[Rfam]
RNA sequence: AAUGCGAAAUCCGAAAAGCAUAUAGAGUAGGAA
Dot-bracket structure: .((((....[[[.....))))........]]].

The family of this 33-nucleotide RNA sequence is "DUF805b RNA". The base pairs follow the family's consensus structure, which is taken from published work. Rfam's curators put it in the seed alignment. The family's RNA type in Rfam is cis-regulatory element.